The family of this 69-nucleotide sequence from Eremomyces bilateralis is "bZIP non canonical Hac1/Xbp1 intron". A reference for the family is Hooks and Griffiths-Jones (2011), "Conserved RNA structures in the non-canonical Hac1/Xbp1 intron", RNA Biol. By type it is a small RNA. It scores 53 bits against the family's covariance model. The family has 112 seed sequences and 1,325 matches in Rfam 15.1.
RNA sequence: UCGAGGCUGACUUGACACAACAUUCUGCAGCAAUGUUGUGCCCCGACCUGCAGUGUCAGUCAGCCUCGA
Numbered sequence: 001u002c003g004a005g006g007c008u009g010a011c012u013u014g015a016c017a018c019a020a021c022a023u024u025c026u027g028c029a030g031c032a033a034u035g036u037u038g039u040g041c042c043c044c045g046a047c048c049u050g051c052a053g054u055g056u057c058a059g060u061c062a063g064c065c066u067c068g069a
Base pairs, nucleotide, nucleotide: 001069002068003067004066005065006064008062009061010060011059012058019037020036021035022034023033024032045057046056047055